[Rfam]
RNA sequence: GGCCUCCCUCUUUGGGGCAAUUGAUCAGGGAGCCCUCCCAUUGAUCGCCCUGCAGAGGGUGGCC
Numbered sequence: 001g002g003c004c005u006c007c008c009u010c011u012u013u014g015g016g017g018c019a020a021u022u023g024a025u026c027a028g029g030g031a032g033c034c035c036u037c038c039c040a041u042u043g044a045u046c047g048c049c050c051u052g053c054a055g056a057g058g059g060u061g062g063c064c
Base pairs, nucleotide, nucleotide: 001064002063003062004061006059007058008057009056010055011054013052014051015050016049017048018047020045021044022043023042024041025040028039029038030037031036
mir-9242 microRNA precursor family: a 64-nucleotide sequence from Myotis brandtii. The base pairs follow the family's consensus structure, which was predicted with RNAalifold. It scores 65 bits against the family's covariance model. The source organism's lineage runs through Eukaryota, Amniota, Laurasiatheria, Yangochiroptera and Myotis.